RNA sequence: UUAAGGCCACUGGAAGAGCGUGCUAAAGCACCGCCGAAGGCGUAACACCCGUAAUCGCUCAGGCUCAAGAACCAGUGGCAUAGG
Numbered sequence: 001u002u003a004a005g006g007c008c009a010c011u012g013g014a015a016g017a018g019c020g021u022g023c024u025a026a027a028g029c030a031c032c033g034c035c036g037a038a039g040g041c042g043u044a045a046c047a048c049c050c051g052u053a054a055u056c057g058c059u060c061a062g063g064c065u066c067a068a069g070a071a072c073c074a075g076u077g078g079c080a081u082a083g084g
Base pairs, nucleotide, nucleotide: 006079007078008077009076010075011074012073013072020031021030022029023028033064034063035062036060037059040058041057042056046051
Glycine riboswitch aptamer: an 84-nucleotide RNA from Ferriphaselus amnicola. A search with the family's covariance model found it, with a score of 61 bits. From the family's description: This family represents the bacterial glycine riboswitch. Glycine riboswitches usually consist of two metabolite-binding aptamers domains with similar structures in tandem. The aptamers cooperatively bind glycine to regulate the expression of downstream genes. In Bacillus subtilis, this riboswitch is found upstream of the gcvT operon which controls glycine degradation. Its family is annotated with glycine biosynthetic process in the Gene Ontology.